[Rfam]
RNA sequence: AUGAGCCCCACAGGGUUGACCUGAGACCACAUGUGCCCUUUGCGUUCUUGCCGGGGCCGGAUCAACAUCUUCCCGGACUCCGUGUCGUGUGAGAUGUGUUCUCAGGUCGCCCCUGCCAGGCUUUC
Numbered sequence: 001a002u003g004a005g006c007c008c009c010a011c012a013g014g015g016u017u018g019a020c021c022u023g024a025g026a027c028c029a030c031a032u033g034u035g036c037c038c039u040u041u042g043c044g045u046u047c048u049u050g051c052c053g054g055g056g057c058c059g060g061a062u063c064a065a066c067a068u069c070u071u072c073c074c075g076g077a078c079u080c081c082g083u084g085u086c087g088u089g090u091g092a093g094a095u096g097u098g099u100u101c102u103c104a105g106g107u108c109g110c111c112c113c114u115g116c117c118a119g120g121c122u123u124u125c
Stems, first nucleotide, its partner, number of pairs: 007119001011115004017109003023103004028098005

The family of this 125-nucleotide RNA from Punica granatum is "MIR398 microRNA precursor family". It scores 60 bits against the family's covariance model. For this family Rfam cites "Computational identification of plant microRNAs and their targets, including a stress-induced miRNA" (Jones-Rhoades and Bartel, Mol Cell, 2004). The source organism's lineage runs through Eukaryota, Streptophyta, Euphyllophyta, Magnoliopsida and Punica. Pairs were carried over by alignment from the consensus structure, which was predicted with WAR.